[Rfam]
RNA sequence: AGGCAUGCGCUAUGAAGAGAGCUAUCCAUUGACAGUAUGGUGAUAGUAGACACUGUCAUGGAGUUGCUCUCUUUGUGGACGGUGCU
Numbered sequence: 001a002g003g004c005a006u007g008c009g010c011u012a013u014g015a016a017g018a019g020a021g022c023u024a025u026c027c028a029u030u031g032a033c034a035g036u037a038u039g040g041u042g043a044u045a046g047u048a049g050a051c052a053c054u055g056u057c058a059u060g061g062a063g064u065u066g067c068u069c070u071c072u073u074u075g076u077g078g079a080c081g082g083u084g085c086u
Base pairs, nucleotide, nucleotide: 014074015073016072017071018070020068021067022066025062026061027060028059031057032056033055035053036052